A member of the RNA family "Histone 3' UTR stem-loop" from Patiria miniata, 46 nucleotides long.
The family's RNA type in Rfam is cis-regulatory element.

RNA sequence: CCUCCGGUUCUUUUCAGAACCACACAUACUCAUAAAAGAAAAUCAU
Numbered sequence: 001c002c003u004c005c006g007g008u009u010c011u012u013u014u015c016a017g018a019a020c021c022a023c024a025c026a027u028a029c030u031c032a033u034a035a036a037a038g039a040a041a042a043u044c045a046u
Stems, first nucleotide, its partner, number of pairs: 006021006
Pairs were carried over by alignment from the consensus structure, which is taken from published work. The mRNAs of metazoan histone genes lack a poly-A tail. 3' end processing occurs at a site between a highly conserved stem-loop (modelled by this family) and a purine rich region around 20 nts downstream (the histone downstream element, or HDE). The stem-loop is bound by a 31 kDa stem-loop binding protein (SLBP - also termed the histone hairpin binding protein, or HBP). Together with U7 snRNA binding of the HDE, SLBP binding nucleate s the formation of the processing complex. The histone 3' UTR stem-loop is also involved in nucleocytoplasmic transport of the mRNA, and in stability regulation and translation efficiency in the cytoplasm.